[Rfam]
RNA sequence: CCUCUUGAGGUACCUGAAUUACCAAAAGCUAUGUAUUCUGAAGUUAUUGAAAAUAAGAGCUUUUGGGAAUUCAGGUAGUUCAGGAGUG
Numbered sequence: 001c002c003u004c005u006u007g008a009g010g011u012a013c014c015u016g017a018a019u020u021a022c023c024a025a026a027a028g029c030u031a032u033g034u035a036u037u038c039u040g041a042a043g044u045u046a047u048u049g050a051a052a053a054u055a056a057g058a059g060c061u062u063u064u065g066g067g068a069a070u071u072c073a074g075g076u077a078g079u080u081c082a083g084g085a086g087u088g
Base pairs, nucleotide, nucleotide: 002086003085004084005083006082007081008080009079011077012076013075014074015073016072017071018070019069022066023065024064025063026062027061028060029059030058032055033054034053036051037050038049